Annotation: Glycine riboswitch aptamer: an 80-nucleotide RNA from Coriobacteriales bacterium OH1046. Gene Ontology term of the family: glycine biosynthetic process.

RNA sequence: AUGAGAGGGUCGGGAGAGACCGCAGGAGCGGAGCCGAAGGGGAGGCGAGAACUCUCAGGCAAAAGGACCGGCCUUUGACG
Numbered sequence: 001a002u003g004a005g006a007g008g009g010u011c012g013g014g015a016g017a018g019a020c021c022g023c024a025g026g027a028g029c030g031g032a033g034c035c036g037a038a039g040g041g042g043a044g045g046c047g048a049g050a051a052c053u054c055u056c057a058g059g060c061a062a063a064a065g066g067a068c069c070g071g072c073c074u075u076u077g078a079c080g
Stems, first nucleotide, its partner, number of pairs: 006075008020031004033060003036056002040054003
On this family, see Mandal et al., Science 2004: "A glycine-dependent riboswitch that uses cooperative binding to control gene expression". The match comes from Rfam's covariance-model search (53 bits). The base pairs follow the family's consensus structure.